[Rfam]
RNA sequence: ACGCGUGACACGGGGUGCGCUUUCGACUACGCAAUGGAGCAAUCCACUGAAUGUACUCAUCAGCGCUGAGAUUACACCCGUUGAACCUGAUCUAUUUCGUACUAGCGGAGGGAUUGUCACGCAUGACAUCU
Dot-bracket structure: .....(((((((((.((((((........................................))))).......)..)))).....(((...(((........)))...)))...)))))............
Shown here is a 131-nucleotide RNA sequence from Lampropedia puyangensis, a member of the family "TPP riboswitch aptamer (THI element)". Rfam's curators write: Vitamin B(1) in its active form thiamin pyrophosphate (TPP) is an essential coenzyme that is synthesised by coupling of pyrimidine and thiazole moieties in bacteria. The previously detected thiamin-regulatory element, thi box was extended, resulting in a new, highly conserved RNA secondary structure, the THI element, which is widely distributed in eubacteria and also occurs in some archaea. Analysis of operon structures identified a large number of new candidate thiamin-regulated genes, mostly transporters, in various prokaryotic organisms. The THI element is a riboswitch that directly binds to TPP to regulate gene expression through a variety of mechanisms in archaea, bacteria and eukaryotes. through a variety of mechanisms in archaea, bacteria and eukaryotes. Tandem TPP riboswitches have been reported where both TPP riboswitches respond independently to TPP. The structure of TPP riboswitch has been reported for Escherichia coli and Arabidopsis thaliana. Rfam links the family to the GO term thiamine pyrophosphate binding.